Shown here is an 85-nucleotide RNA from Glaciimonas immobilis, a member of the family "c-di-GMP-I riboswitch aptamer". Rfam describes the family as follows. GEMM was predicted in a large-scale screen for bacterial structured RNA regulatory elements.
RNA sequence: ACUCGAUAAUAGCAAACUCGUUGAAAAGCGGGGACGCAAAGCUUCCGGUCUAACGGCUUCUGCCUACGACAGCGGGGUCGCCGAA
Numbered sequence: 001a002c003u004c005g006a007u008a009a010u011a012g013c014a015a016a017c018u019c020g021u022u023g024a025a026a027a028g029c030g031g032g033g034a035c036g037c038a039a040a041g042c043u044u045c046c047g048g049u050c051u052a053a054c055g056g057c058u059u060c061u062g063c064c065u066a067c068g069a070c071a072g073c074g075g076g077g078u079c080g081c082c083g084a085a
Base pairs, nucleotide, nucleotide: 012037013036017032018031019030020029021028022027041078042077043076045075046074047073048070049069050068055064056063057062
Its family is annotated with cyclic-di-GMP binding in the Gene Ontology.